Shown here is a 64-nucleotide RNA from Myotis davidii, a member of the family "mir-9242 microRNA precursor family". Its family is annotated with miRNA-mediated post-transcriptional gene silencing and RISC complex in the Gene Ontology.

RNA sequence: GGCCUCCCUCUGUGGGGCAAUAGAUUGUGGGGUCCCCAGAUCGAUUGCCCCGCAGAGGGAGACC
Numbered sequence: 001g002g003c004c005u006c007c008c009u010c011u012g013u014g015g016g017g018c019a020a021u022a023g024a025u026u027g028u029g030g031g032g033u034c035c036c037c038a039g040a041u042c043g044a045u046u047g048c049c050c051c052g053c054a055g056a057g058g059g060a061g062a063c064c
Base pairs, nucleotide, nucleotide: 001064002063004061005060006059007058008057009056010055011054012053013052014051015050016049017048018047019046020045021044023042024041025040026039029036030035
The family's consensus secondary structure was predicted with RNAalifold.